The family of this 85-nucleotide RNA sequence from Hipposideros armiger is "Small nucleolar RNA SNORD116". The match comes from Rfam's covariance-model search (35 bits). Its family is annotated with nucleolus and RNA processing in the Gene Ontology. The family's RNA type in Rfam is C/D-box small nucleolar RNA. Taxonomically the source falls in Hipposideros (Eukaryota, Eumetazoa, Vertebrata, Amniota).
[Rfam]
RNA sequence: GUAUCGAUAAUUAUUAUAAUAGUUAAUCUUGUUGAAAAAUCUGAACAAAAUUAGUUACACAGCCUCAUCUGUGCAACUGAGGUCC
Number, nucleotide and partner (000 for none) at each position: 001g085002u000003a083004u082005c081006g000007a000008u000009a000010a000011u000012u000013a000014u000015u000016a000017u000018a000019a000020u000021a000022g000023u000024u000025a000026a056027u000028c054029u053030u000031g000032u048033u047034g046035a000036a000037a000038a000039a000040u000041c000042u000043g000044a000045a000046c034047a033048a032049a000050a000051u000052u000053a029054g028055u000056u026057a000058c000059a000060c000061a000062g000063c000064c000065u000066c000067a000068u000069c000070u000071g000072u000073g000074c000075a000076a000077c000078u000079g000080a000081g005082g004083u003084c000085c001